[Rfam]
RNA sequence: GGGAUGGUUGAAAGAAGAGCUGACGCAGUAACAAACCAGUCCAAUGUGACUGAAAGAUACUGUGAGGUAAAGUCCCUGGACCAAAGGCCGAAAGGGUUGUCGCCAGUAGUAGGUGGAACCGGCAGAAAACAGCGGUGAAGGUCAAGAUAGCUAGUUUGAGCCGCAAACCGCGUAAAGUUGGAUGUCGUCACAAGCACAGUGUAAUGCUCGGUAAAUGAACAGAACAGGGCUUAUUUGCAAACCACCC
Number, nucleotide and partner (000 for none) at each position: 001g000002g247003g246004a000005u244006g243007g242008u241009u239010g238011a000012a000013a000014g000015a000016a000017g209018a208019g207020c206021u000022g000023a000024c064025g063026c062027a061028g060029u059030a000031a000032c000033a000034a000035a000036c000037c052038a051039g050040u049041c048042c000043a000044a000045u000046g000047u000048g041049a040050c039051u038052g037053a000054a000055a000056g000057a000058u000059a029060c028061u027062g026063u025064g024065a000066g000067g000068u000069a000070a232071a231072g230073u000074c229075c228076c227077u226078g000079g000080a000081c000082c000083a000084a000085a000086g098087g097088c096089c095090g000091a000092a000093a000094g000095g089096g088097u087098u086099g000100u116101c115102g114103c113104c112105a000106g000107u000108a000109g000110u000111a000112g104113g103114u102115g101116g100117a000118a000119c181120c180121g179122g178123c177124a000125g000126a000127a000128a173129a000130c000131a000132g171133c170134g169135g168136u000137g000138a000139a000140g162141g161142u160143c000144a000145a000146g000147a000148u000149a156150g155151c000152u000153a000154g000155u150156u149157u000158g000159a000160g142161c141162c140163g000164c000165a000166a000167a000168c135169c134170g133171c132172g000173u128174a000175a000176a000177g123178u122179u121180g120181g119182a000183u000184g000185u000186c000187g000188u000189c000190a000191c000192a000193a000194g000195c000196a000197c000198a000199g000200u000201g000202u000203a000204a000205u000206g020207c019208u018209c017210g000211g000212u000213a000214a000215a000216u000217g000218a000219a000220c000221a000222g000223a000224a000225c000226a077227g076228g075229g074230c072231u071232u070233a000234u000235u000236u000237g000238c010239a009240a000241a008242c007243c006244a005245c000246c003247c002

A member of the RNA family "RNase MRP" from Dracunculus medinensis, 247 nucleotides long. The family's RNA type in Rfam is ribozyme.